Rfam assigns this 127-nucleotide sequence from Erinaceus europaeus to the family "Small nucleolar RNA SNORA3/SNORA45 family". The match comes from Rfam's covariance-model search (79 bits). Rfam links the family to the GO terms nucleolus and RNA processing.
RNA sequence: GGCGAGGCUAGAGUCUUGCCAGGGCAUGGCGUUGCCCCGGCGUGCUGGAGUCUUCGGAGAGCAGCCGCUGGCCUUAUUCGCUGGCUGUGGCCCCAUGGCCGAUCCAGUCACCAGGCCAGGGACAGGC
Dot-bracket structure: ..(((((((..((.(.((((..((((......))))..)))).)))..))).))))...........(((((((.....(((((.(..(((......))).).)))))....)))))))........
From the family's description: The members of this family belong to the H/ACA class of snoRNAs which are thought to guide the sites of modification of uridines to pseudouridines. This family includes mouse snoMBI-28 and human homologues ACA3 (SNORA3) and ACA3-2 (SNORA45). The family's consensus secondary structure was predicted with RNAalifold.